[Rfam]
RNA sequence: GUACUGAAAGUGAGUAUUGGAGGAAAGCAAACUGGAAAUCCGUAUCAAAAGUGCUCAUGUUUUCCAGCUUGUUUUUCUCCAAUAUCUCACUUUCGCUCG
Numbered sequence: 001g002u003a004c005u006g007a008a009a010g011u012g013a014g015u016a017u018u019g020g021a022g023g024a025a026a027g028c029a030a031a032c033u034g035g036a037a038a039u040c041c042g043u044a045u046c047a048a049a050a051g052u053g054c055u056c057a058u059g060u061u062u063u064c065c066a067g068c069u070u071g072u073u074u075u076u077c078u079c080c081a082a083u084a085u086c087u088c089a090c091u092u093u094c095g096c097u098c099g
Base pairs, nucleotide, nucleotide: 005095006094007093008092011089012088013087014086016083017082018081019080020079021078023076024075025074026073027072028071029070030069032067033066034065035064036063
Overview
Shown here is a 99-nucleotide sequence from Aegilops tauschii, a member of the family "MIR2275 microRNA precursor family". It scores 67 bits against the family's covariance model. Its family is annotated with RISC complex and miRNA-mediated post-transcriptional gene silencing in the Gene Ontology.